A member of the RNA family "Small nucleolar RNA SNORD126" from Neogale vison, 70 nucleotides long. It scores 72 bits against the family's covariance model. Rfam classes the family as a C/D-box small nucleolar RNA.
[Rfam]
RNA sequence: AGUUUGCUAUGAUGAAGUUAAGUCCAUGUUUCAGCUGAUCACCCUGAUUAAACACAUGCUCUGAGAGACU
Numbered sequence: 001a002g003u004u005u006g007c008u009a010u011g012a013u014g015a016a017g018u019u020a021a022g023u024c025c026a027u028g029u030u031u032c033a034g035c036u037g038a039u040c041a042c043c044c045u046g047a048u049u050a051a052a053c054a055c056a057u058g059c060u061c062u063g064a065g066a067g068a069c070u
Stems, first nucleotide, its partner, number of pairs: 001070005007065001
The organism belongs to Neogale, within Eukaryota.